[Rfam]
RNA sequence: CACCACUCGACGCGAAGCGCACCGAGGGAACCGGGGAACCACCACUUCUCGGCCGUCGUCAGCCGGCGGCGAGGGGGGUCUCUCACCGGUCGGCCCACACCGGGGCCGCCCUCCGAGGGAUGGGGUGAAUCGGACUCUCCCGCCCAUGUCCCAUGUGCGGGCGCUUCCGUAGGAGACCUUCCUGCUCCGAACCCGUCAGCUAACCCGGUAGGCGAGAAGGAAGGAAAG
Number, nucleotide and partner (000 for none) at each position: 001c211002a000003c000004c000005a000006c028007u027008c000009g000010a000011c000012g000013c000014g000015a000016a000017g000018c000019g000020c000021a000022c000023c000024g000025a000026g000027g007028g006029a000030a209031c208032c207033g206034g205035g204036g000037a000038a000039c000040c122041a121042c000043c000044a000045c000046u000047u000048c000049u000050c000051g000052g000053c000054c000055g000056u000057c000058g000059u000060c000061a000062g000063c000064c000065g000066g000067c000068g000069g000070c000071g000072a000073g000074g000075g000076g000077g000078g000079u000080c000081u000082c000083u000084c000085a000086c000087c000088g000089g000090u000091c000092g000093g000094c000095c000096c000097a000098c000099a000100c000101c000102g000103g000104g000105g000106c000107c000108g000109c000110c000111c000112u000113c000114c000115g000116a000117g000118g000119g000120a000121u041122g040123g194124g193125g192126u000127g000128a000129a000130u000131c169132g168133g167134a166135c000136u000137c000138u000139c000140c000141c000142g000143c000144c000145c000146a000147u000148g000149u000150c000151c000152c000153a000154u000155g000156u000157g000158c000159g000160g000161g000162c000163g000164c000165u000166u134167c133168c132169g131170u000171a000172g188173g187174a186175g185176a000177c000178c000179u000180u000181c000182c000183u000184g000185c175186u174187c173188c172189g000190a000191a000192c125193c124194c123195g000196u000197c000198a000199g000200c000201u000202a000203a000204c035205c034206c033207g032208g031209u030210a000211g001212g000213c000214g000215a000216g000217a000218a000219g000220g000221a000222a000223g000224g000225a000226a000227a000228g000

Description: The family of this 228-nucleotide RNA sequence from Streptomyces daliensis is "c-di-AMP riboswitch aptamer (ydaO/yuaA leader)". The match comes from Rfam's covariance-model search (59 bits). The organism belongs to Streptomyces, within Bacteria.